A member of the RNA family "Fluoride riboswitch aptamer (crcB RNA motif)" from Variovorax sp. Sphag1AA, 69 nucleotides long. NCBI's taxonomy places the organism under Bacteria, Pseudomonadati, Pseudomonadota, Betaproteobacteria, Variovorax.
RNA sequence: UGGCCCUUUGGAGAUGACAUUCCUCCACCUCGUGAAACCGCCGCACCGGCUGAUGAUGUCUACGCCACC
Numbered sequence: 001u002g003g004c005c006c007u008u009u010g011g012a013g014a015u016g017a018c019a020u021u022c023c024u025c026c027a028c029c030u031c032g033u034g035a036a037a038c039c040g041c042c043g044c045a046c047c048g049g050c051u052g053a054u055g056a057u058g059u060c061u062a063c064g065c066c067a068c069c
Stems, first nucleotide, its partner, number of pairs: 010026004016060006040050003
About this RNA
A reference for the family is Zhao et al. (2017), "An excited state underlies gene regulation of a transcriptional riboswitch", Nat Chem Biol.